[Rfam]
RNA sequence: AAAAGGUACAGCUCUUUUAGAAUUUGUCCAGCAAGUUUUCCGGUCCUCACUGGAAGACCCAC
Dot-bracket structure: ..................................((((((((((....))))))))))....
RNA: U7 small nuclear RNA
Organism: Prolemur simus